This 115-nucleotide RNA from Allokutzneria albata belongs to the Rfam family "SAM (S-adenosyl methionine) riboswitch aptamer". The family is grouped with related families in Rfam's "SAM clan". The organism belongs to Allokutzneria, within Bacteria. Rfam 15.1 lists 2,360 matches to the family in 1,305 species. The match comes from Rfam's covariance-model search (111 bits). The literature on the family includes a 2008 paper in RNA by Weinberg et al., "The aptamer core of SAM-IV riboswitches mimics the ligand-binding site of SAM-I riboswitches". Rfam describes the family as follows. SAM-IV is a mRNA element that regulates gene expression via direct sensing of S-adenosylmethionine (SAM or AdoMet).
RNA sequence: GGUCAUGAGUGCCAGCGACAAGCCCUAGCUAGCUGGUCGGCAACCCUCCAACCGCGGUGGGGUGCCCUAGGUGAGGACCUGGUUCGCCGCGAGGUGCGGCGGGCAAGCGCGGACU
Numbered sequence: 001g002g003u004c005a006u007g008a009g010u011g012c013c014a015g016c017g018a019c020a021a022g023c024c025c026u027a028g029c030u031a032g033c034u035g036g037u038c039g040g041c042a043a044c045c046c047u048c049c050a051a052c053c054g055c056g057g058u059g060g061g062g063u064g065c066c067c068u069a070g071g072u073g074a075g076g077a078c079c080u081g082g083u084u085c086g087c088c089g090c091g092a093g094g095u096g097c098g099g100c101g102g103g104c105a106a107g108c109g110c111g112g113a114c115u
Stems, first nucleotide, its partner, number of pairs: 001079004009038001011037006021030002039066003044062003048057002082104010